RNA sequence: UUACUCAAACGAAGAGAAUGAAAAACAGCUACUGGUACUCAAAUGGUACUGGAAGUAAAAAAGAAUAAAUUGAAUAAUAGUUCCAAGUGGUUUACAUUUGGACAAAAAUUAGAUCAUAACUUAAGUGUUA
Numbered sequence: 001u002u003a004c005u006c007a008a009a010c011g012a013a014g015a016g017a018a019u020g021a022a023a024a025a026c027a028g029c030u031a032c033u034g035g036u037a038c039u040c041a042a043a044u045g046g047u048a049c050u051g052g053a054a055g056u057a058a059a060a061a062a063g064a065a066u067a068a069a070u071u072g073a074a075u076a077a078u079a080g081u082u083c084c085a086a087g088u089g090g091u092u093u094a095c096a097u098u099u100g101g102a103c104a105a106a107a108a109u110u111a112g113a114u115c116a117u118a119a120c121u122u123a124a125g126u127g128u129u130a
Stems, first nucleotide, its partner, number of pairs: 006034002011029001014026001036123002043117004051066001080103002083101007
RNA: Streptococcus sRNA SpR18